Rfam assigns this 153-nucleotide RNA from Callorhinus ursinus to the family "U4 spliceosomal RNA".
Rfam describes the family as follows. U4 small nuclear RNA (U4 snRNA) is a component of the major U2-dependent spliceosome.
The organism belongs to Callorhinus, within Eukaryota.
[Rfam]
RNA sequence: AGCUUUGCGCAGUGGCAGUAUCGUAGCCAAUGAGGUUUAUCCGAGGCGCGAUUAUUGCUAAUUGAAAAAUUGAUUACAUUUAUUUCUAGAGAGUCUGAUGCAGUUACUCAUGGCUCCCAAGGAUUCUUGAGCUGGGUUAAUGGGGGCAUAUUC
Numbered sequence: 001a002g003c004u005u006u007g008c009g010c011a012g013u014g015g016c017a018g019u020a021u022c023g024u025a026g027c028c029a030a031u032g033a034g035g036u037u038u039a040u041c042c043g044a045g046g047c048g049c050g051a052u053u054a055u056u057g058c059u060a061a062u063u064g065a066a067a068a069a070u071u072g073a074u075u076a077c078a079u080u081u082a083u084u085u086c087u088a089g090a091g092a093g094u095c096u097g098a099u100g101c102a103g104u105u106a107c108u109c110a111u112g113g114c115u116c117c118c119a120a121g122g123a124u125u126c127u128u129g130a131g132c133u134g135g136g137u138u139a140a141u142g143g144g145g146g147c148a149u150a151u152u153c
Stems, first nucleotide, its partner, number of pairs: 020052005026047003034042002086121002089118001091116005096110002